[Rfam]
RNA sequence: AAGAAAGUGAGGAGACAUUUCAUUAGUGACUCUUCAUUGAGGAAGAGCAUUGAGGUAUAUUGAAAUCAAAGGCCGAGAUAUUGUUUCAGUCAUCAUUUUACUCAAUUGACGAUUUGAUUGUUGCUUGUCCAUAU
Numbered sequence: 001a002a003g004a005a006a007g008u009g010a011g012g013a014g015a016c017a018u019u020u021c022a023u024u025a026g027u028g029a030c031u032c033u034u035c036a037u038u039g040a041g042g043a044a045g046a047g048c049a050u051u052g053a054g055g056u057a058u059a060u061u062g063a064a065a066u067c068a069a070a071g072g073c074c075g076a077g078a079u080a081u082u083g084u085u086u087c088a089g090u091c092a093u094c095a096u097u098u099u100a101c102u103c104a105a106u107u108g109a110c111g112a113u114u115u116g117a118u119u120g121u122u123g124c125u126u127g128u129c130c131a132u133a134u
Stems, first nucleotide, its partner, number of pairs: 006038009016028002071130002074127004080118004089113003093109003097105002

Source information: Small nucleolar RNA snoR111: a 134-nucleotide RNA from Durio zibethinus. Rfam links the family to the GO terms nucleolus and RNA processing. The family's consensus secondary structure was predicted with WAR. A reference for the family is Marker et al. (2002), "Experimental RNomics: identification of 140 candidates for small non-messenger RNAs in the plant Arabidopsis thaliana", Curr Biol. It scores 76 bits against the family's covariance model. The family's RNA type in Rfam is H/ACA-box small nucleolar RNA. Rfam 15.1 lists 533 matches to the family in 223 species.